[Rfam]
RNA sequence: UUCUUAUCCGGAGAGGUGGAGGGACUGGCCCGAUGAAGCCCGGCAACCGGUAAUGCUGAUUACAAAGGUGCCAAUUCCUGCAAGGUUUUACCCUUGGAAGAUGAGAC
Numbered sequence: 001u002u003c004u005u006a007u008c009c010g011g012a013g014a015g016g017u018g019g020a021g022g023g024a025c026u027g028g029c030c031c032g033a034u035g036a037a038g039c040c041c042g043g044c045a046a047c048c049g050g051u052a053a054u055g056c057u058g059a060u061u062a063c064a065a066a067g068g069u070g071c072c073a074a075u076u077c078c079u080g081c082a083a084g085g086u087u088u089u090a091c092c093c094u095u096g097g098a099a100g101a102u103g104a105g106a107c
Stems, first nucleotide, its partner, number of pairs: 002106007013041001015040003021031003025080001027078002042072004047068002050063003076099001081096005
Dot-bracket structure: .(((((((....(.(((...(((.[.[[)))......))))((((.((.(((........)))...))))))...(]].](((((......)))))..)))))))).
Record summary: SAM riboswitch aptamer (S box leader): a 107-nucleotide RNA from Natribacillus halophilus. A search with the family's covariance model found it, with a score of 89 bits. The literature on the family includes a 1998 paper in Mol Microbiol by Grundy and Henkin, "The S box regulon: a new global transcription termination control system for methionine and cysteine biosynthesis genes in gram-positive bacteria".